Rfam assigns this 82-nucleotide RNA sequence from Nelumbo nucifera to the family "mir-156 microRNA precursor family". A reference for the family is Reinhart et al. (2002), "MicroRNAs in plants", Genes Dev.
RNA sequence: CUGACAGAAGAGAGUGAGCACACACAGGCAAUUGUAUAUGGGUAUGCCGUCGCCGGUGCGUGCUCACUUCUCUUUCUGUCAG
Numbered sequence: 001c002u003g004a005c006a007g008a009a010g011a012g013a014g015u016g017a018g019c020a021c022a023c024a025c026a027g028g029c030a031a032u033u034g035u036a037u038a039u040g041g042g043u044a045u046g047c048c049g050u051c052g053c054c055g056g057u058g059c060g061u062g063c064u065c066a067c068u069u070c071u072c073u074u075u076c077u078g079u080c081a082g
Base pairs, nucleotide, nucleotide: 001082002081003080004079005078006077007076008075009074010072011071012070013068014067015066016065017064018063019062020061021060023058024057025056
Gene Ontology terms of the family: miRNA-mediated post-transcriptional gene silencing and RISC complex.